[Rfam]
RNA sequence: CCUCCCUUUCUUGGCAGGAUCGGGUUUUCCUGUACCCAUUUCUGUAAUGUGUGGAGGUAAACUAAUGCUGCCCAGCGUCAUGUCUUCGGUGCCAGCGGUUUUCCCAUCCGCUGGUUCUAUCCUCAAGCGCCGGGACACGG
Numbered sequence: 001c002c003u004c005c006c007u008u009u010c011u012u013g014g015c016a017g018g019a020u021c022g023g024g025u026u027u028u029c030c031u032g033u034a035c036c037c038a039u040u041u042c043u044g045u046a047a048u049g050u051g052u053g054g055a056g057g058u059a060a061a062c063u064a065a066u067g068c069u070g071c072c073c074a075g076c077g078u079c080a081u082g083u084c085u086u087c088g089g090u091g092c093c094a095g096c097g098g099u100u101u102u103c104c105c106a107u108c109c110g111c112u113g114g115u116u117c118u119a120u121c122c123u124c125a126a127g128c129g130c131c132g133g134g135a136c137a138c139g140g
Stems, first nucleotide, its partner, number of pairs: 001057005015044005022037004073132001075130004092114007

Small nucleolar RNA SNORA57: a 140-nucleotide RNA sequence from Pseudonaja textilis. Taxonomically the source falls in Pseudonaja (Eukaryota, Teleostomi, Elapidae, Hydrophiinae). The match comes from Rfam's covariance-model search (127 bits). By type it is an H/ACA-box small nucleolar RNA. From the family's description: U99 belongs to the H/ACA class of snoRNAs which are thought to guide the sites of modification of uridines to pseudouridines, the target for this family is unknown. Rfam 15.1 lists 1,736 matches to the family in 530 species. Rfam links the family to the GO terms RNA processing and nucleolus.